[Rfam]
RNA sequence: CAGGGGUGGGGGGUCUCCCUCAUCCCAGAUUGCUAGAGGGCGCAGGCCAGGCUGAGGGACCCCACCAGUGCAUG
Numbered sequence: 001c002a003g004g005g006g007u008g009g010g011g012g013g014u015c016u017c018c019c020u021c022a023u024c025c026c027a028g029a030u031u032g033c034u035a036g037a038g039g040g041c042g043c044a045g046g047c048c049a050g051g052c053u054g055a056g057g058g059a060c061c062c063c064a065c066c067a068g069u070g071c072a073u074g
Stems, first nucleotide, its partner, number of pairs: 004071001006069001009066002012063002016059007024051002028047001030045004
RNA: mir-9193 microRNA precursor family
Organism: Myotis myotis